Rfam assigns this 129-nucleotide RNA from Carlito syrichta to the family "Small nucleolar RNA SNORD22". A reference for the family is Tycowski et al. (1996), "A mammalian gene with introns instead of exons generating stable RNA products", Nature. It scores 68 bits against the family's covariance model. By type it is a C/D-box small nucleolar RNA.

[Rfam]
RNA sequence: UUUCAAAAUAGAAUGCUCAGUAAUGUCAAAGUUGCAGGAACCUAGUCUUAGAUCCUAUAAAGGCAGGCCCACUGGGGCUGACUGGGAAAGAAGGUGAAAAUUUGUUUCAGAAGGAACCAUCUCAGGGAU
Numbered sequence: 001u002u003u004c005a006a007a008a009u010a011g012a013a014u015g016c017u018c019a020g021u022a023a024u025g026u027c028a029a030a031g032u033u034g035c036a037g038g039a040a041c042c043u044a045g046u047c048u049u050a051g052a053u054c055c056u057a058u059a060a061a062g063g064c065a066g067g068c069c070c071a072c073u074g075g076g077g078c079u080g081a082c083u084g085g086g087a088a089a090g091a092a093g094g095u096g097a098a099a100a101u102u103u104g105u106u107u108c109a110g111a112a113g114g115a116a117c118c119a120u121c122u123c124a125g126g127g128a129u
Base pairs, nucleotide, nucleotide: 001128002127003126004125